[Rfam]
RNA sequence: AUUACUUAAUCCAUAAUUAACAAAUUAUAACUAGCAAUAGUUUAGGUGAUUAGACUAAGUUUUAAAUAACUACGUUAGAAUGCUCAUGAUACUUUCAGAUGAUACCCUAGUCUGAAACCCUAUCGGUAUAUUUUAAACAGUUGUGAGGAUUAGCAACAGUGAAUAUACCCUAACAAGAUGUUCUAACUUUGUCGAAGGGUAAAUAAC
Numbered sequence: 001a002u003u004a005c006u007u008a009a010u011c012c013a014u015a016a017u018u019a020a021c022a023a024a025u026u027a028u029a030a031c032u033a034g035c036a037a038u039a040g041u042u043u044a045g046g047u048g049a050u051u052a053g054a055c056u057a058a059g060u061u062u063u064a065a066a067u068a069a070c071u072a073c074g075u076u077a078g079a080a081u082g083c084u085c086a087u088g089a090u091a092c093u094u095u096c097a098g099a100u101g102a103u104a105c106c107c108u109a110g111u112c113u114g115a116a117a118c119c120c121u122a123u124c125g126g127u128a129u130a131u132u133u134u135a136a137a138c139a140g141u142u143g144u145g146a147g148g149a150u151u152a153g154c155a156a157c158a159g160u161g162a163a164u165a166u167a168c169c170c171u172a173a174c175a176a177g178a179u180g181u182u183c184u185a186a187c188u189u190u191g192u193c194g195a196a197g198g199g200u201a202a203a204u205a206a207c
Base pairs, nucleotide, nucleotide: 001050002049003048004047005046006045007044008043010030013028014027017022031040032039033038053193054192055191057189058071059070060069061068074187075186076185077184078183079182080181081180082179084177089123090122093117094116095115096114097113098112099111100110103201104200105199106198107197108196125169126168127167128166129165130164131163132162133161137160138159140157141156142155143154144153146151
The record is a 207-nucleotide RNA, which matches "HNH endonuclease-associated RNA and ORF (HEARO) RNA" in Rfam.